[Rfam]
RNA sequence: UAGGAAAAAUGGCAAACCUGAUCGAAAGACAGGGACGCAAAGCUACGGGUCUAAAGCAUUAUUAAUGCGAUGAUCGCCGGGUUACCCUA
Numbered sequence: 001u002a003g004g005a006a007a008a009a010u011g012g013c014a015a016a017c018c019u020g021a022u023c024g025a026a027a028g029a030c031a032g033g034g035a036c037g038c039a040a041a042g043c044u045a046c047g048g049g050u051c052u053a054a055a056g057c058a059u060u061a062u063u064a065a066u067g068c069g070a071u072g073a074u075c076g077c078c079g080g081g082u083u084a085c086c087c088u089a
Base pairs, nucleotide, nucleotide: 012038013037017033018032019031020030022029023028041083042082043081044080046079047078048077049074050073051072056068057067058066059065
Dot-bracket structure: ...........((...((((.((....))))))...))..((((.((((((....((((.....))))...)))..)))))))......
Rfam assigns this 89-nucleotide RNA from Paenibacillus stellifer to the family "c-di-GMP-I riboswitch aptamer". A search with the family's covariance model found it, with a score of 79 bits.